The family of this 72-nucleotide RNA from Coleofasciculus sp. LEGE 07092 is "tRNA". Rfam classes the family as a transfer RNA. The family's consensus secondary structure is taken from published work.
[Rfam]
RNA sequence: GCAGGUGUGGUGCAAUGGCUAGCAUAGGAGCGUCGUAACCUUCUGAUGCGAGUUCAAAUCUCGCCACCUGCU
Numbered sequence: 001g002c003a004g005g006u007g008u009g010g011u012g013c014a015a016u017g018g019c020u021a022g023c024a025u026a027g028g029a030g031c032g033u034c035g036u037a038a039c040c041u042u043c044u045g046a047u048g049c050g051a052g053u054u055c056a057a058a059u060c061u062c063g064c065c066a067c068c069u070g071c072u
Base pairs, nucleotide, nucleotide: 001071002070003069004068005067006066007065010025011024012023013022027043028042029041030040048064049063050062051061052060
Rfam's curators write: Transfer RNA (tRNA) molecules are approximately 80 nucleotides in length.